[Rfam]
RNA sequence: CACUCUGGAAAGCGGAUGGCCGCGUCGGGAAACUGGCGGGGUCGUCCCACCGAAGGGGUAAGCCGGACCGGCUCAGGUGCGGCGAAAGCUCUCAGGUUCCGUGACAGAGGG
Numbered sequence: 001c002a003c004u005c006u007g008g009a010a011a012g013c014g015g016a017u018g019g020c021c022g023c024g025u026c027g028g029g030a031a032a033c034u035g036g037c038g039g040g041g042u043c044g045u046c047c048c049a050c051c052g053a054a055g056g057g058g059u060a061a062g063c064c065g066g067a068c069c070g071g072c073u074c075a076g077g078u079g080c081g082g083c084g085a086a087a088g089c090u091c092u093c094a095g096g097u098u099c100c101g102u103g104a105c106a107g108a109g110g111g
Stems, first nucleotide, its partner, number of pairs: 001111001003109005014047008049097003052093002056091003062083004
A member of the RNA family "Glycine riboswitch aptamer" from Sphingomonas sp. Root710, 111 nucleotides long.